[Rfam]
RNA sequence: ACCCCUGUGGAAAAUUCCCCAAUCCUGUUUCUGACACCUCAUAUGAAAGCUGCAUGUGCAGUCUUACUGCUAUUUUGCAAGCCUGAGGCUU
Dot-bracket structure: .((.............................................(((((....)))))........................))...
Numbered sequence: 001a002c003c004c005c006u007g008u009g010g011a012a013a014a015u016u017c018c019c020c021a022a023u024c025c026u027g028u029u030u031c032u033g034a035c036a037c038c039u040c041a042u043a044u045g046a047a048a049g050c051u052g053c054a055u056g057u058g059c060a061g062u063c064u065u066a067c068u069g070c071u072a073u074u075u076u077g078c079a080a081g082c083c084u085g086a087g088g089c090u091u
Stems, first nucleotide, its partner, number of pairs: 002088002049062005